The family of this 64-nucleotide RNA from Gouania willdenowi is "Small nucleolar RNA SNORD58". Its Rfam clan is "SNORD58 clan". Taxonomically the source falls in Gouania (Eukaryota, Metazoa, Teleostomi, Eurypterygia). It scores 77 bits against the family's covariance model. About the family: snoRNA U58 is found in introns 1, 3 and 6 of the ribosomal protein RPL17 gene in humans.

RNA sequence: CUGCAGUGAUGACUCCUUAGGACACCUUUGGAUUACUCAUGAAAACAAUUUUAAUCUGAGCAGC
Number, nucleotide and partner (000 for none) at each position: 001c063002u062003g061004c060005a000006g000007u000008g000009a000010u000011g000012a000013c000014u000015c000016c000017u000018u000019a000020g000021g000022a000023c000024a000025c000026c000027u000028u000029u000030g000031g000032a000033u000034u000035a000036c000037u000038c000039a000040u000041g000042a000043a000044a000045a000046c000047a000048a000049u000050u000051u000052u000053a000054a000055u000056c000057u000058g000059a000060g004061c003062a002063g001064c000